[Rfam]
RNA sequence: GGCGUGUGCUCAGAACAGGGGCCUGAAGAACGGCUCCUCCAUUUACAACACACCCAACGGAAUCUGGGGUCAUUGUGAUGAGGGCACAAAAUUUGUGGCCUCCCUGUAAACAAAUUCCCCACAUGU
Number, nucleotide and partner (000 for none) at each position: 001g000002g055003c000004g053005u052006g051007u050008g049009c000010u000011c000012a000013g044014a043015a042016c000017a000018g039019g038020g036021g034022c033023c032024u000025g000026a000027a000028g000029a000030a000031c000032g023033g022034c021035u000036c020037c000038u019039c018040c000041a000042u015043u014044u013045a000046c000047a000048a000049c008050a007051c006052a005053c004054c000055c002056a000057a000058c000059g000060g000061a000062a000063u000064c000065u000066g000067g119068g118069g117070u000071c000072a000073u000074u112075g111076u110077g000078a000079u108080g107081a000082g101083g100084g099085c097086a096087c095088a094089a093090a000091a000092u000093u089094u088095g087096u086097g085098g000099c084100c083101u082102c000103c000104c000105u000106g000107u080108a079109a000110a076111c075112a074113a000114a000115u000116u000117c069118c068119c067120c000121a000122c000123a000124u000125g000126u000

Small nucleolar RNA SNORA11: a 126-nucleotide sequence from Otolemur garnettii. NCBI's taxonomy places the organism under Eukaryota, Deuterostomia, Teleostomi, Strepsirrhini, Otolemur. It is annotated as an H/ACA-box small nucleolar RNA. A search with the family's covariance model found it, with a score of 110 bits. The literature on the family includes a 2005 paper in Nucleic Acids Res by Gu et al., "A novel experimental approach for systematic identification of box H/ACA snoRNAs from eukaryotes". U107 (SNORA11) is a member of the H/ACA class of snoRNAs that guide the sites of modification of uridines to pseudouridines. This snoRNA was identified by RT-PCR from blood cells and its expression confirmed by Northern blot analysis. There is no predicted target for this guide snRNA.